About this RNA: TPP riboswitch aptamer (THI element): a 97-nucleotide RNA sequence from Aquiflexum balticum. The source organism's lineage runs through Bacteria, Pseudomonadati, Bacteroidota, Cyclobacteriaceae and Aquiflexum balticum. The match comes from Rfam's covariance-model search (68 bits). From the family's description: Vitamin B(1) in its active form thiamin pyrophosphate (TPP) is an essential coenzyme that is synthesised by coupling of pyrimidine and thiazole moieties in bacteria. The previously detected thiamin-regulatory element, thi box was extended, resulting in a new, highly conserved RNA secondary structure, the THI element, which is widely distributed in eubacteria and also occurs in some archaea. Analysis of operon structures identified a large number of new candidate thiamin-regulated genes, mostly transporters, in various prokaryotic organisms.
RNA sequence: CAAGAUCAUUAGGGGUGCCUUAACAAAACGGGCUGAGAUCAUACCCACAAUACCUGAUCCGGGUAGUGCCGGCGAAGGGAAAUGAGUAACCAAUACG
Numbered sequence: 001c002a003a004g005a006u007c008a009u010u011a012g013g014g015g016u017g018c019c020u021u022a023a024c025a026a027a028a029c030g031g032g033c034u035g036a037g038a039u040c041a042u043a044c045c046c047a048c049a050a051u052a053c054c055u056g057a058u059c060c061g062g063g064u065a066g067u068g069c070c071g072g073c074g075a076a077g078g079g080a081a082a083u084g085a086g087u088a089a090c091c092a093a094u095a096c097g
Stems, first nucleotide, its partner, number of pairs: 006085005012046003016041001017033004053078003059072004